A member of the RNA family "Small nucleolar RNA SNORA81" from Chanos chanos, 177 nucleotides long. It is annotated as an H/ACA-box small nucleolar RNA.

RNA sequence: UCUUCCACACAAAAGAACUGUGCUAAAAUUGCAGAAUCCUUUUUGGUUUCCGCAAUAGUGCUAGCAGAGUAACAUGUGGAAGGAGAGAAAGCACUCGCCCUGUACCGCAAAUGAAAUUUGGUCGGACCUCUUUCUUAAUGUCCCUUGGCUUAAGUUUCAAGGUCCAGCGCAACAUUC
Numbered sequence: 001u002c003u004u005c006c007a008c009a010c011a012a013a014a015g016a017a018c019u020g021u022g023c024u025a026a027a028a029u030u031g032c033a034g035a036a037u038c039c040u041u042u043u044u045g046g047u048u049u050c051c052g053c054a055a056u057a058g059u060g061c062u063a064g065c066a067g068a069g070u071a072a073c074a075u076g077u078g079g080a081a082g083g084a085g086a087g088a089a090a091g092c093a094c095u096c097g098c099c100c101u102g103u104a105c106c107g108c109a110a111a112u113g114a115a116a117u118u119u120g121g122u123c124g125g126a127c128c129u130c131u132u133u134c135u136u137a138a139u140g141u142c143c144c145u146u147g148g149c150u151u152a153a154g155u156u157u158c159a160a161g162g163u164c165c166a167g168c169g170c171a172a173c174a175u176u177c
Stems, first nucleotide, its partner, number of pairs: 018069002021066005028059004034050002038046002097170002100167003104163001119148001121146001124143003
The source organism's lineage runs through Eukaryota, Opisthokonta, Deuterostomia, Teleostomi and Chanos.